[Rfam]
RNA sequence: AACAUAACAUUGAACAAGAGGAGUAACUAGUGAUUGACUGAUAGAGAGAGAACGAGUGGUGGAACGUUCUUAGGAGAGACUAGUGAAGGUAGCUUGGGAGUUUUUAUCUUGAACCUUUAGUUUAGAAUAAUAGGAUAAAGGCUAGAGAUAAACGAGUCGUGAUCGUUAACUCACUGAAAGAGGUAGUUAGAAAUGACUACAAAUUAGGUGGUACCGCGUAAAUCAAUACGUCCUAAAA
Numbered sequence: 001a002a003c004a005u006a007a008c009a010u011u012g013a014a015c016a017a018g019a020g021g022a023g024u025a026a027c028u029a030g031u032g033a034u035u036g037a038c039u040g041a042u043a044g045a046g047a048g049a050g051a052a053c054g055a056g057u058g059g060u061g062g063a064a065c066g067u068u069c070u071u072a073g074g075a076g077a078g079a080c081u082a083g084u085g086a087a088g089g090u091a092g093c094u095u096g097g098g099a100g101u102u103u104u105u106a107u108c109u110u111g112a113a114c115c116u117u118u119a120g121u122u123u124a125g126a127a128u129a130a131u132a133g134g135a136u137a138a139a140g141g142c143u144a145g146a147g148a149u150a151a152a153c154g155a156g157u158c159g160u161g162a163u164c165g166u167u168a169a170c171u172c173a174c175u176g177a178a179a180g181a182g183g184u185a186g187u188u189a190g191a192a193a194u195g196a197c198u199a200c201a202a203a204u205u206a207g208g209u210g211g212u213a214c215c216g217c218g219u220a221a222a223u224c225a226a227u228a229c230g231u232c233c234u235a236a237a238a
Stems, first nucleotide, its partner, number of pairs: 007101002015096004026084006038073002048071006104151007153165003183200007205235004216231005
RNA: T-box leader
Organism: Enterococcus lacertideformus